[Rfam]
This 110-nucleotide RNA from Chelonoidis abingdonii belongs to the Rfam family "mraW RNA". Lineage of the source: Eukaryota > Gnathostomata > Cryptodira > Testudinidae > Chelonoidis nigra species complex.

RNA sequence: GGGAAGUGGAGUGACCCGGCCUCAGCCUGCUCCGCUCCCCUGGCUCCCAGGCAUGGCUGGGAGCCAGGGGAGCGGAGCAGGCUGGGACCAGGUUGCUUUCCUUACCAGUG
Numbered sequence: 001g002g003g004a005a006g007u008g009g010a011g012u013g014a015c016c017c018g019g020c021c022u023c024a025g026c027c028u029g030c031u032c033c034g035c036u037c038c039c040c041u042g043g044c045u046c047c048c049a050g051g052c053a054u055g056g057c058u059g060g061g062a063g064c065c066a067g068g069g070g071a072g073c074g075g076a077g078c079a080g081g082c083u084g085g086g087a088c089c090a091g092g093u094u095g096c097u098u099u100c101c102u103u104a105c106c107a108g109u110g
Stems, first nucleotide, its partner, number of pairs: 010097007018089002021086030
It is annotated as a cis-regulatory element.